[Rfam]
Shown here is a 165-nucleotide sequence from Orthopestivirus bovis, a member of the family "Pestivirus 3' UTR SLIV and SLII bovine viral diarrhea virus (BVDV-1)".
A reference for the family is Forth et al. (2023), "African swine fever virus - variants on the rise", Emerg Microbes Infect.
It is annotated as a small RNA.
RNA sequence: GACAAAAUGUAUAUAUUAUAAAUAGAAUUAACCCUUGUACAUAUUGUAUAUAAGCAUAGUGGGGUUCAUCUACCUCAAAAGGCUAUAUACUCAACAUACACAGCUAAACAGUAGUUGAGAUUAUCUACCUCAAGAUAACACUACACUCAACGCACACAGCACUUU
Numbered sequence: 001g002a003c004a005a006a007a008u009g010u011a012u013a014u015a016u017u018a019u020a021a022a023u024a025g026a027a028u029u030a031a032c033c034c035u036u037g038u039a040c041a042u043a044u045u046g047u048a049u050a051u052a053a054g055c056a057u058a059g060u061g062g063g064g065u066u067c068a069u070c071u072a073c074c075u076c077a078a079a080a081g082g083c084u085a086u087a088u089a090c091u092c093a094a095c096a097u098a099c100a101c102a103g104c105u106a107a108a109c110a111g112u113a114g115u116u117g118a119g120a121u122u123a124u125c126u127a128c129c130u131c132a133a134g135a136u137a138a139c140a141c142u143a144c145a146c147u148c149a150a151c152g153c154a155c156a157c158a159g160c161a162c163u164u165u
Stems, first nucleotide, its partner, number of pairs: 002047003007042007059151002062148003068142001111139002122137001124135003